[Rfam]
mir-2765 microRNA precursor family: a 91-nucleotide RNA sequence from Cryptotermes secundus. A search with the family's covariance model found it, with a score of 70 bits. Pairs were carried over by alignment from the consensus structure, which was predicted with RNAalifold.
RNA sequence: AGUGUAGUGAGGAGUGGUAACUCCACCACCGUUGGCUUGACUUCUAGAAAUGGUGGCCAACGGUAGAGGAGUUCCUCUACCUCGCUACAUG
Numbered sequence: 001a002g003u004g005u006a007g008u009g010a011g012g013a014g015u016g017g018u019a020a021c022u023c024c025a026c027c028a029c030c031g032u033u034g035g036c037u038u039g040a041c042u043u044c045u046a047g048a049a050a051u052g053g054u055g056g057c058c059a060a061c062g063g064u065a066g067a068g069g070a071g072u073u074c075c076u077c078u079a080c081c082u083c084g085c086u087a088c089a090u091g
Base pairs, nucleotide, nucleotide: 003089004088005087006086007085008084009083010082011081012080016076017075019073020072021071022070023069026066029063030062031061032060033059034058035057036056037055